[Rfam]
RNA sequence: UGUUUAAUUACGCUGAGUCCUUAAACAAGGAACGGGGGAACCACUCGAACGUUCAUGAUACGUUCCCGGGGUGAAUCGCCGAUGGGCAUAAUCCGUGCCCUUUCGGCGUAGGGCGGCUCUCAUGCCCGAAUCCGACAGCUAACCUCGUAAGCGUCUUGAGAGGCAAC
Numbered sequence: 001u002g003u004u005u006a007a008u009u010a011c012g013c014u015g016a017g018u019c020c021u022u023a024a025a026c027a028a029g030g031a032a033c034g035g036g037g038g039a040a041c042c043a044c045u046c047g048a049a050c051g052u053u054c055a056u057g058a059u060a061c062g063u064u065c066c067c068g069g070g071g072u073g074a075a076u077c078g079c080c081g082a083u084g085g086g087c088a089u090a091a092u093c094c095g096u097g098c099c100c101u102u103u104c105g106g107c108g109u110a111g112g113g114c115g116g117c118u119c120u121c122a123u124g125c126c127c128g129a130a131u132c133c134g135a136c137a138g139c140u141a142a143c144c145u146c147g148u149a150a151g152c153g154u155c156u157u158g159a160g161a162g163g164c165a166a167c
Stems, first nucleotide, its partner, number of pairs: 011153004018031003032148006042068001069133003077108006111127004